[Rfam]
RNA sequence: GGGGUGUGCAGACUUACCUCUACGUGGUGCACCCUGGGCAACGUAUACUCAUACGGCAAAAAAGUCUAU
Numbered sequence: 001g002g003g004g005u006g007u008g009c010a011g012a013c014u015u016a017c018c019u020c021u022a023c024g025u026g027g028u029g030c031a032c033c034c035u036g037g038g039c040a041a042c043g044u045a046u047a048c049u050c051a052u053a054c055g056g057c058a059a060a061a062a063a064g065u066c067u068a069u
Stems, first nucleotide, its partner, number of pairs: 001035007016028003042055005
This 69-nucleotide RNA from Rodentolepis nana belongs to the Rfam family "HDV ribozyme from F. prausnitzii". The family has 48 seed sequences and 3,803 matches in Rfam 15.1. On this family, see Webb et al., Science 2009: "Widespread occurrence of self-cleaving ribozymes".